[Rfam]
RNA sequence: GGCAUGUGCCUUGCGAUGACACCGCCAAGGCAAUCAAUGCCGAUUGCCCUACCCCACGACAAAGGCGCCGU
Numbered sequence: 001g002g003c004a005u006g007u008g009c010c011u012u013g014c015g016a017u018g019a020c021a022c023c024g025c026c027a028a029g030g031c032a033a034u035c036a037a038u039g040c041c042g043a044u045u046g047c048c049c050u051a052c053c054c055c056a057c058g059a060c061a062a063a064g065g066c067g068c069c070g071u
Stems, first nucleotide, its partner, number of pairs: 029048007
A member of the RNA family "narK RNA" from Metapseudomonas resinovorans, 71 nucleotides long. By type it is a cis-regulatory element. Lineage of the source: Bacteria > Pseudomonadati > Pseudomonadaceae > Metapseudomonas > Metapseudomonas resinovorans. Rfam's curators put it in the seed alignment.